The record is a 53-nucleotide sequence, which matches "Plastid-atpF group II-D1 intron" in Rfam.
Gene Ontology term of the family: Group II intron splicing.
The sequence is in the family's curated seed alignment.
Pairs were carried over by alignment from the consensus structure, which was predicted with LocARNA.
Plastid atpF is a non-coding RNA (ncRNA) recognised in plastids.
[Rfam]
RNA sequence: AAUUUUUUGUUCGAUAUAGAACACUCAUGUCGAUGAAAUUUUUUGAAACCUUU
Numbered sequence: 001a002a003u004u005u006u007u008u009g010u011u012c013g014a015u016a017u018a019g020a021a022c023a024c025u026c027a028u029g030u031c032g033a034u035g036a037a038a039u040u041u042u043u044u045g046a047a048a049c050c051u052u053u
Base pairs, nucleotide, nucleotide: 011033012032013031014030015029016028017027
Dot-bracket structure: ..........(((((((.........)))))))....................